[Rfam]
RNA sequence: GUAAAUAAUUAGCUAAUUUAUUGAAAAAUAAGGACGCAAAGCCGUGGGUCUAAGGAAAGAAAAUCUAUGACUGCCUGGUUGCUUUC
Numbered sequence: 001g002u003a004a005a006u007a008a009u010u011a012g013c014u015a016a017u018u019u020a021u022u023g024a025a026a027a028a029u030a031a032g033g034a035c036g037c038a039a040a041g042c043c044g045u046g047g048g049u050c051u052a053a054g055g056a057a058a059g060a061a062a063a064u065c066u067a068u069g070a071c072u073g074c075c076u077g078g079u080u081g082c083u084u085u086c
Stems, first nucleotide, its partner, number of pairs: 012037002017032006040080004046075002048071003055065002
RNA: c-di-GMP-I riboswitch aptamer